This 100-nucleotide RNA sequence belongs to the Rfam family "Pyrrolysine insertion sequence mttB". Rfam classes the family as a cis-regulatory element. Pairs were carried over by alignment from the consensus structure, which was predicted with CMfinder. Rfam's curators put it in the seed alignment. Its family is annotated with pyrrolysine incorporation in the Gene Ontology.
[Rfam]
RNA sequence: UUGACCGAUUCUAAAAUACCAGAUGCCCAGGCAGGCUGGGAAAAGGCAUUUACAACCCUUCUGACAGCCAUGGGUGGUUCUAACUAUAUCCAUCACGCAG
Numbered sequence: 001u002u003g004a005c006c007g008a009u010u011c012u013a014a015a016a017u018a019c020c021a022g023a024u025g026c027c028c029a030g031g032c033a034g035g036c037u038g039g040g041a042a043a044a045g046g047c048a049u050u051u052a053c054a055a056c057c058c059u060u061c062u063g064a065c066a067g068c069c070a071u072g073g074g075u076g077g078u079u080c081u082a083a084c085u086a087u088a089u090c091c092a093u094c095a096c097g098c099a100g
Stems, first nucleotide, its partner, number of pairs: 003012001025032001033062003077098001